[Rfam]
Nucleotides: 034
Base pairs, nucleotide, nucleotide: 001025002024003023004022005021008018009017010016
Number, partner (000 for none) and nucleotide at each position: 001025c002024u003023u004022u005021g006000u007000g008018a009017u010016g011000g012000g013000a014000a015000a016010u017009a018008u019000a020000u021005c022004a023003g024002g025001g026000c027000a028000g029000a030000a031000g032000g033000a034000g